[Rfam]
RNA sequence: GUUGGGUUAGCUUAAUGGUAAAGCACUCGAUUUGUAAUCGAGGUAAUGGUAGUUCAAGUCUACUACCCAGCA
Numbered sequence: 001g002u003u004g005g006g007u008u009a010g011c012u013u014a015a016u017g018g019u020a021a022a023g024c025a026c027u028c029g030a031u032u033u034g035u036a037a038u039c040g041a042g043g044u045a046a047u048g049g050u051a052g053u054u055c056a057a058g059u060c061u062a063c064u065a066c067c068c069a070g071c072a
Stems, first nucleotide, its partner, number of pairs: 001071007010024004026042005048064005
The record is a 72-nucleotide RNA sequence from Thamnidium elegans, which matches "tRNA" in Rfam. Lineage of the source: Eukaryota > Opisthokonta > Fungi > Mucoromycota > Thamnidium. It is annotated as a transfer RNA.